RNA sequence: UCUAGUGAAAAGCAAACUUAUUGAAAAGUAAGGACGCAAAGUUACAGAUCUAAGGCGUAGGCUAAGAUGGCUGGGCUCCCGCA
Numbered sequence: 001u002c003u004a005g006u007g008a009a010a011a012g013c014a015a016a017c018u019u020a021u022u023g024a025a026a027a028g029u030a031a032g033g034a035c036g037c038a039a040a041g042u043u044a045c046a047g048a049u050c051u052a053a054g055g056c057g058u059a060g061g062c063u064a065a066g067a068u069g070g071c072u073g074g075g076c077u078c079c080c081g082c083a
Stems, first nucleotide, its partner, number of pairs: 012037002017032006040077004045073003048068003055062002

Source information:
The record is an 83-nucleotide sequence from Peribacillus psychrosaccharolyticus, which matches "c-di-GMP-I riboswitch aptamer" in Rfam. Lineage of the source: Bacteria > Bacillati > Bacilli > Caryophanales > Peribacillus.